[Rfam]
The record is a 594-nucleotide part of an RNA from Batkoa obscura, which matches "Eukaryotic small subunit ribosomal RNA" in Rfam. NCBI's taxonomy places the organism under Eukaryota, Opisthokonta, Entomophthoromycotina, Entomophthoromycetes, Batkoa. The family is grouped with related families in Rfam's "SSU clan". Pairs were carried over by alignment from the consensus structure, which is taken from published work.
RNA sequence: CAGUUAAAACGCCCGUAGUCAAACUUCUUGGGGCAAGGUGGCAGAGUCAGUUCAACUGUCUAUAUGGCAAACUUCCACUCUUAUUAAACCCCCCAUACAGCAGUUAAGUCUUUUAGCUCCGGGAUGAUAAACACCGUCAACAACUCGGCAGUACCAUCUAACUAGCACCUCUCUAUUCAGUAGGUGUGGCUAUUAGACGUUUACCUUGAUUUAAUCAAAGCGUUCAAAGCAGGCAAUAACAGCCCGAAUGUAUAAGCAUGGAAUAAUAAAAGAUGACCUUUGGUCCUUUUGUUGGUUUUAAGACCAUCGGUAAUGAUGAAAGGAGUAGGUUCGGGGCAUUAGUAUUUACUCGCUAGAGGUGAAAUUCUUGGAUUGAGUAAAGACUAUCUACAGCGAAAGCAUUUGCCAGGGACCUACUUGUCGAUCAAGGACGAAAGUUGGGGGAUCGAAGAUGAUUAGAUACCGUCGUAGUCCCAACAGUAAAUGUUGCCAACUCUGAGUCGGUGAACUUACAUAAUCAUCAUCUCCCCCGAGAAAUCGCAAGUUUUUGGGUUCCGGGGGGAGUAUGGUCGCAAGGCUGAAACUUAAAGGAAU
Numbered sequence: 001c002a003g004u005u006a007a008a009a010c011g012c013c014c015g016u017a018g019u020c021a022a023a024c025u026u027c028u029u030g031g032g033g034c035a036a037g038g039u040g041g042c043a044g045a046g047u048c049a050g051u052u053c054a055a056c057u058g059u060c061u062a063u064a065u066g067g068c069a070a071a072c073u074u075c076c077a078c079u080c081u082u083a084u085u086a087a088a089c090c091c092c093c094c095a096u097a098c099a100g101c102a103g104u105u106a107a108g109u110c111u112u113u114u115a116g117c118u119c120c121g122g123g124a125u126g127a128u129a130a131a132c133a134c135c136g137u138c139a140a141c142a143a144c145u146c147g148g149c150a151g152u153a154c155c156a157u158c159u160a161a162c163u164a165g166c167a168c169c170u171c172u173c174u175a176u177u178c179a180g181u182a183g184g185u186g187u188g189g190c191u192a193u194u195a196g197a198c199g200u201u202u203a204c205c206u207u208g209a210u211u212u213a214a215u216c217a218a219a220g221c222g223u224u225c226a227a228a229g230c231a232g233g234c235a236a237u238a239a240c241a242g243c244c245c246g247a248a249u250g251u252a253u254a255a256g257c258a259u260g261g262a263a264u265a266a267u268a269a270a271a272g273a274u275g276a277c278c279u280u281u282g283g284u285c286c287u288u289u290u291g292u293u294g295g296u297u298u299u300a301a302g303a304c305c306a307u308c309g310g311u312a313a314u315g316a317u318g319a320a321a322g323g324a325g326u327a328g329g330u331u332c333g334g335g336g337c338a339u340u341a342g343u344a345u346u347u348a349c350u351c352g353c354u355a356g357a358g359g360u361g362a363a364a365u366u367c368u369u370g371g372a373u374u375g376a377g378u379a380a381a382g383a384c385u386a387u388c389u390a391c392a393g394c395g396a397a398a399g400c401a402u403u404u405g406c407c408a409g410g411g412a413c414c415u416a417c418u419u420g421u422c423g424a425u426c427a428a429g430g431a432c433g434a435a436a437g438u439u440g441g442g443g444g445a446u447c448g449a450a451g452a453u454g455a456u457u458a459g460a461u462a463c464c465g466u467c468g469u470a471g472u473c474c475c476a477a478c479a480g481u482a483a484a485u486g487u488u489g490c491c492a493a494c495u496c497u498g499a500g501u502c503g504g505u506g507a508a509c510u511u512a513c514a515u516a517a518u519c520a521u522c523a524u525c526u527c528c529c530c531c532g533a534g535a536a537a538u539c540g541c542a543a544g545u546u547u548u549u550g551g552g553u554u555c556c557g558g559g560g561g562g563a564g565u566a567u568g569g570u571c572g573c574a575a576g577g578c579u580g581a582a583a584c585u586u587a588a589a590g591g592a593a594u
Base pairs, nucleotide, nucleotide: 001557003555009554011432013430014429018425019424020423323419324418325417326416328413330411331410335407336406337405338404341385342384345381346380347379348378349377350376351375352374356367357366358365393400394399437478438477439476440475441474442473447471451467452466453465454464489553490552491551492546493545494544498527503522504521505520506519507518532539533538559586560585561584568579569578570577571576
Dot-bracket structure: (.(.....(.(.((...(((..............................................................................................................................................................................................................................................................................................................((((.(.((...((((..((..((((((((...(((......)))......))))))))..)).......((....))...))))..)).)..))))...)))...)).)....((((((....(...((((.........))))...).))))))..........((((((...(....(((((..........)))))....)....((....))....)))....))))).).(((......((((....))))....)))........